A member of the RNA family "Eukaryotic large subunit ribosomal RNA" from Angomonas deanei, 330 nucleotides of a longer RNA. Taxonomically the source falls in Angomonas (Eukaryota, Discoba, Trypanosomatida, Trypanosomatidae). Pairs were carried over by alignment from the consensus structure, which is taken from published work.
RNA sequence: GGAAAUUGCGAGUAAAAGAUUAUCCGCGCAAAGCGGGUGUCGGGGCGUUCUGGCCCUGGCAAGCGGCUGCGAGUGCUUGGCACCGCGGUCACCACACGCAGAAAGAGAACGAAGCGCAAGUUUCACCCUUUUUUUGUUGUCACGAGAUUGUGAAGGGAUCUCGCAGGCAUCGUGAGGGAAGUAUGGGGUAGUACGAGAGGAACUCCCAUGCCGUGCCUCUAGUUUCUGGGGUUUGUCGAACGGCAAGUGCCCCGAAGCCAUCGCACGGUGGUUCUCGGCUGAACGCCUCUAAGCCAGAAGCCAAUCCCAAGACCAGAUGCCCUCCUGACC
Numbered sequence: 001g002g003a004a005a006u007u008g009c010g011a012g013u014a015a016a017a018g019a020u021u022a023u024c025c026g027c028g029c030a031a032a033g034c035g036g037g038u039g040u041c042g043g044g045g046c047g048u049u050c051u052g053g054c055c056c057u058g059g060c061a062a063g064c065g066g067c068u069g070c071g072a073g074u075g076c077u078u079g080g081c082a083c084c085g086c087g088g089u090c091a092c093c094a095c096a097c098g099c100a101g102a103a104a105g106a107g108a109a110c111g112a113a114g115c116g117c118a119a120g121u122u123u124c125a126c127c128c129u130u131u132u133u134u135u136g137u138u139g140u141c142a143c144g145a146g147a148u149u150g151u152g153a154a155g156g157g158a159u160c161u162c163g164c165a166g167g168c169a170u171c172g173u174g175a176g177g178g179a180a181g182u183a184u185g186g187g188g189u190a191g192u193a194c195g196a197g198a199g200g201a202a203c204u205c206c207c208a209u210g211c212c213g214u215g216c217c218u219c220u221a222g223u224u225u226c227u228g229g230g231g232u233u234u235g236u237c238g239a240a241c242g243g244c245a246a247g248u249g250c251c252c253c254g255a256a257g258c259c260a261u262c263g264c265a266c267g268g269u270g271g272u273u274c275u276c277g278g279c280u281g282a283a284c285g286c287c288u289c290u291a292a293g294c295c296a297g298a299a300g301c302c303a304a305u306c307c308c309a310a311g312a313c314c315a316g317a318u319g320c321c322c323u324c325c326u327g328a329c330c
Stems, first nucleotide, its partner, number of pairs: 166321006176308004181211008212267005220260001222258001227254005232247006269303003277295004